The family of this 191-nucleotide RNA from Streptomyces taklimakanensis is "c-di-AMP riboswitch aptamer (ydaO/yuaA leader)".
[Rfam]
RNA sequence: GUCGCGUCAGCGCCGAUGGCAGGAGCGGGGGAACCAGGUAGGCGCCGCCGGGGCCGUGCACACGGACGGGCCGUGCGUACGGAGCACGGCGGCUUGGGGUGAAGCCGCGCGGGGACACCGCGUCCCGCGCGGCCGGGCUGCUCACGGCCCGAACCCGACAGCUCACCUCGUAGGCGUCGGUGAGAGGGACG
Numbered sequence: 001g002u003c004g005c006g007u008c009a010g011c012g013c014c015g016a017u018g019g020c021a022g023g024a025g026c027g028g029g030g031g032a033a034c035c036a037g038g039u040a041g042g043c044g045c046c047g048c049c050g051g052g053g054c055c056g057u058g059c060a061c062a063c064g065g066a067c068g069g070g071c072c073g074u075g076c077g078u079a080c081g082g083a084g085c086a087c088g089g090c091g092g093c094u095u096g097g098g099g100u101g102a103a104g105c106c107g108c109g110c111g112g113g114g115a116c117a118c119c120g121c122g123u124c125c126c127g128c129g130c131g132g133c134c135g136g137g138c139u140g141c142u143c144a145c146g147g148c149c150c151g152a153a154c155c156c157g158a159c160a161g162c163u164c165a166c167c168u169c170g171u172a173g174g175c176g177u178c179g180g181u182g183a184g185a186g187g188g189a190c191g
Stems, first nucleotide, its partner, number of pairs: 011176004025171006035096005097156003105132010135150004